[Rfam]
RNA sequence: UCAAUGUUAAUCUCGUACUUGGGGCGCACAAACGGGUGUUCGUCACUCAAUCCGCCUAGGGAAGGUCUGAGUAAAGGCUCAUGUGCUCUAACACAUUCUAGCCGGAUGCUUCCCUCAUAGGGAAGGCGAGGGUACCAGAAAUCUAGAGCAAUGCUUAGCUUAUGAUGUCAACACAGGGGUGCUUGGUGGAGGCACAGGCAUUGGGUCUAUUGAAACCUCUUGUAGCCAGCAAUUUUAGUUCAAUCUACGAGAUGACCAAGGUCACAACUCAAUUCAGACUAGUCUUUCAUUGG
Numbered sequence: 001u002c003a004a005u006g007u008u009a010a011u012c013u014c015g016u017a018c019u020u021g022g023g024g025c026g027c028a029c030a031a032a033c034g035g036g037u038g039u040u041c042g043u044c045a046c047u048c049a050a051u052c053c054g055c056c057u058a059g060g061g062a063a064g065g066u067c068u069g070a071g072u073a074a075a076g077g078c079u080c081a082u083g084u085g086c087u088c089u090a091a092c093a094c095a096u097u098c099u100a101g102c103c104g105g106a107u108g109c110u111u112c113c114c115u116c117a118u119a120g121g122g123a124a125g126g127c128g129a130g131g132g133u134a135c136c137a138g139a140a141a142u143c144u145a146g147a148g149c150a151a152u153g154c155u156u157a158g159c160u161u162a163u164g165a166u167g168u169c170a171a172c173a174c175a176g177g178g179g180u181g182c183u184u185g186g187u188g189g190a191g192g193c194a195c196a197g198g199c200a201u202u203g204g205g206u207c208u209a210u211u212g213a214a215a216c217c218u219c220u221u222g223u224a225g226c227c228a229g230c231a232a233u234u235u236u237a238g239u240u241c242a243a244u245c246u247a248c249g250a251g252a253u254g255a256c257c258a259a260g261g262u263c264a265c266a267a268c269u270c271a272a273u274u275c276a277g278a279c280u281a282g283u284c285u286u287u288c289a290u291u292g293g
Base pairs, nucleotide, nucleotide: 001293002292003291004290009285012251013250014249015248016247017246022057023056024055025054034048035047036046037045038044067277068276069275070274071273076227077226078225079224094108095107096106097105098104109125110124111123112122113121114120126223127222128221129220130219131218132217147208148207253264254263255262256261
Shown here is a 293-nucleotide sequence from Papilio machaon, a member of the family "Nuclear RNase P". The match comes from Rfam's covariance-model search (136 bits). The family's RNA type in Rfam is ribozyme. The source organism's lineage runs through Eukaryota, Arthropoda, Endopterygota, Ditrysia and Papilio. Rfam's curators write: Ribonuclease P (RNase P) is a ubiquitous endoribonuclease, found in archaea, bacteria and eukarya as well as chloroplasts and mitochondria. Clan: RNaseP clan. Gene Ontology terms of the family: ribonuclease P complex, ribonuclease P activity and tRNA processing.